mir-30 microRNA precursor family: an 80-nucleotide RNA sequence from Electrophorus electricus. The organism belongs to Electrophorus, within Eukaryota. For this family Rfam cites "miRNPs: a novel class of ribonucleoproteins containing numerous microRNAs" (Mourelatos et al., Genes Dev, 2002). The family's consensus secondary structure was predicted with PFOLD. About the family: This family consists of the mammalian microRNA (miRNA) precursor mir-30a. Animal miRNAs are transcribed as ~70nt precursors and subsequently processed by the Dicer enzyme to give a ~22nt product. Its family is annotated with gene silencing by miRNA and RISC complex in the Gene Ontology.

RNA sequence: GGUGGCGCUGUAAACAUCCUUGACUGGAAGCUUGGGGUAGGUGCAGUGAAGGCUUUCAGUCGGAUGUUUGCAGCAUCCGG
Numbered sequence: 001g002g003u004g005g006c007g008c009u010g011u012a013a014a015c016a017u018c019c020u021u022g023a024c025u026g027g028a029a030g031c032u033u034g035g036g037g038u039a040g041g042u043g044c045a046g047u048g049a050a051g052g053c054u055u056u057c058a059g060u061c062g063g064a065u066g067u068u069u070g071c072a073g074c075a076u077c078c079g080g
Stems, first nucleotide, its partner, number of pairs: 004077002008073012023060010